Acinetobacter sRNA 11: a 205-nucleotide sequence from Acinetobacter guillouiae. It scores 181 bits against the family's covariance model. By type it is a small RNA. For this family Rfam cites "Identification of novel regulatory small RNAs in Acinetobacter baumannii" (Sharma et al., PLoS One, 2014).
RNA sequence: UAUUCAACCUCUAUGUAUAGCUAAGUUUGACGAUAUGAGGCAUAAUGCCCUACAACGUAGCGGUGUCAGAUCAUUGAGAAUGUUUUCUAUUUAGAAAUAAUAGUCAUUUUCAAUCAUGCGGCACUUUAAUCGCUAUCCCAUAUUUAUAUAGGGAAUGGGACUCUUCACCGAGGUUGUAAAAUGAGACAAACGACUUUAGCUGUAU
Number, nucleotide and partner (000 for none) at each position: 001u000002a000003u000004u000005c000006a000007a000008c000009c000010u000011c000012u000013a000014u000015g205016u204017a203018u202019a201020g200021c199022u198023a000024a000025g191026u190027u189028u188029g187030a000031c185032g000033a000034u000035a000036u000037g000038a000039g049040g048041c047042a046043u000044a000045a000046u042047g041048c040049c039050c000051u178052a177053c176054a175055a174056c173057g000058u135059a134060g133061c132062g131063g124064u123065g122066u121067c120068a000069g000070a117071u116072c000073a114074u113075u112076g111077a110078g109079a108080a000081u000082g000083u097084u096085u095086u000087c000088u000089a000090u000091u000092u000093a000094g000095a085096a084097a083098u000099a000100a000101u000102a000103g000104u000105c000106a000107u000108u079109u078110u077111c076112a075113a074114u073115c000116a071117u070118g000119c000120g067121g066122c065123a064124c063125u000126u000127u000128a000129a000130u000131c062132g061133c060134u059135a058136u160137c159138c158139c157140a156141u155142a000143u154144u153145u152146a000147u000148a000149u000150a000151g000152g145153g144154a143155a141156u140157g139158g138159g137160a136161c172162u171163c170164u000165u000166c000167a000168c000169c000170g163171a162172g161173g056174u055175u054176g053177u052178a051179a000180a000181a000182u000183g000184a000185g031186a000187c029188a028189a027190a026191c025192g000193a000194c000195u000196u000197u000198a022199g021200c020201u019202g018203u017204a016205u015